[Rfam]
RNA sequence: CUCCACGCUGGGUAAUGGACGACGGCGGCGUGUGGCGAACAGGGAUACCGGUAGUCAGUGUCUGGAACAUCCCAAGGGGCGGCGGAGCUAGCACCCCGACACGUUAAGGCUGGCGAGU
Number, nucleotide and partner (000 for none) at each position: 001c035002u034003c000004c032005a031006c030007g029008c028009u027010g026011g000012g000013u000014a000015a000016u000017g000018g000019a000020c000021g000022a000023c050024g049025g048026c010027g009028g008029c007030g006031u005032g004033u000034g002035g001036c000037g000038a000039a000040c000041a000042g073043g072044g071045a070046u069047a000048c025049c024050g023051g000052u000053a000054g000055u000056c000057a000058g000059u101060g100061u099062c098063u000064g000065g000066a000067a000068c000069a046070u045071c044072c043073c042074a000075a000076g097077g096078g095079g094080c000081g000082g000083c000084g000085g000086a000087g114088c113089u112090a111091g110092c109093a000094c079095c078096c077097c076098g062099a061100c060101a059102c000103g000104u000105u000106a000107a000108g000109g092110c091111u090112g089113g088114c087115g000116a000117g000118u000
RNA: Betaproteobacteria-1 RNA